[Rfam]
The family of this 104-nucleotide sequence from Aggregicoccus sp. 17bor-14 is "Vibrio RNA AS9". On this family, see Liu et al., Nucleic Acids Res 2009: "Experimental discovery of sRNAs in Vibrio cholerae by direct cloning, 5S/tRNA depletion and parallel sequencing". A search with the family's covariance model found it, with a score of 51 bits. Rfam's curators write: Identified by direct cloning an parallel sequencing experiments with 5S/tRNA depletion. Confirmed by Northern blot.
RNA sequence: CUGGCGGAUGCGGUCCUCGGUGAGCGAGAGGCAGAUGAGGCCGCGGCCGUGGGUGGCCAUGAAGUUGAUGGCCUCGGGCGUCACCUUCUCCGCCGCCAUCACCA
Number, nucleotide and partner (000 for none) at each position: 001c000002u000003g058004g057005c056006g000007g054008a000009u028010g000011c026012g025013g000014u023015c022016c000017u000018c000019g000020g000021u000022g015023a014024g000025c012026g011027a000028g009029a000030g000031g000032c000033a000034g000035a050036u049037g048038a000039g047040g000041c045042c000043g000044c000045g041046g000047c039048c037049g036050u035051g000052g000053g000054u007055g000056g005057c004058c003059a000060u000061g000062a000063a000064g000065u000066u104067g103068a000069u101070g100071g096072c095073c000074u000075c092076g091077g090078g088079c000080g086081u000082c000083a000084c000085c000086u080087u000088c078089u000090c077091c076092g075093c000094c000095g072096c071097c000098a000099u000100c070101a069102c000103c067104a066